[Rfam]
This 105-nucleotide RNA sequence from Vulpes vulpes belongs to the Rfam family "mir-8834 microRNA precursor family". The base pairs follow the family's consensus structure, which was predicted with RNAalifold. Rfam 15.1 lists 13,926 matches to the family in 17 species. Its family is annotated with miRNA-mediated post-transcriptional gene silencing and RISC complex in the Gene Ontology. It scores 53 bits against the family's covariance model.
RNA sequence: GGGAGGAACAACCGCAGUGGCCGGCCCAGCUCUGCAGCCCUGGAGUCAGCCCCUGCAGUAACUCCUGGGCUCUCCAUCUGCAGGGUUUGGAGGCUCCAGGGCGGG
Numbered sequence: 001g002g003g004a005g006g007a008a009c010a011a012c013c014g015c016a017g018u019g020g021c022c023g024g025c026c027c028a029g030c031u032c033u034g035c036a037g038c039c040c041u042g043g044a045g046u047c048a049g050c051c052c053c054u055g056c057a058g059u060a061a062c063u064c065c066u067g068g069g070c071u072c073u074c075c076a077u078c079u080g081c082a083g084g085g086u087u088u089g090g091a092g093g094c095u096c097c098a099g100g101g102c103g104g105g
Stems, first nucleotide, its partner, number of pairs: 002097004009089003012085002019078002023074002028071005034065001036063001040058003